[Rfam]
RNA sequence: AAUGAUGACCAACCUGUUUUAUGUCGCGGAAGAGUUCUUGAAGACUAUAUUCAUCACCCAAGGCUGAAUUUAAGA
Numbered sequence: 001a002a003u004g005a006u007g008a009c010c011a012a013c014c015u016g017u018u019u020u021a022u023g024u025c026g027c028g029g030a031a032g033a034g035u036u037c038u039u040g041a042a043g044a045c046u047a048u049a050u051u052c053a054u055c056a057c058c059c060a061a062g063g064c065u066g067a068a069u070u071u072a073a074g075a
Stems, first nucleotide, its partner, number of pairs: 001071002029037003
The record is a 75-nucleotide sequence from Drosophila grimshawi, which matches "Small nucleolar RNA CD11" in Rfam. For this family Rfam cites "Genome-wide analyses of two families of snoRNA genes from Drosophila melanogaster, demonstrating the extensive utilization of introns for coding of snoRNAs" (Huang et al., RNA, 2005). NCBI's taxonomy places the organism under Eukaryota, Panorpida, Diptera, Drosophilinae, Hawaiian Drosophila. Gene Ontology terms of the family: RNA processing and nucleolus.